[Rfam]
RNA sequence: GUUUGACACGGCCCCACGGUGUCCAGUCUGGGCCCAACUUUCGGUCGUGGCGCGAUGAC
Numbered sequence: 001g002u003u004u005g006a007c008a009c010g011g012c013c014c015c016a017c018g019g020u021g022u023c024c025a026g027u028c029u030g031g032g033c034c035c036a037a038c039u040u041u042c043g044g045u046c047g048u049g050g051c052g053c054g055a056u057g058a059c
Base pairs, nucleotide, nucleotide: 007049008048009047010046011045012044013043016041018035019034021033022032023031024030025029
RNA: Selenocysteine insertion sequence 3
Organism: Microvirga mediterraneensis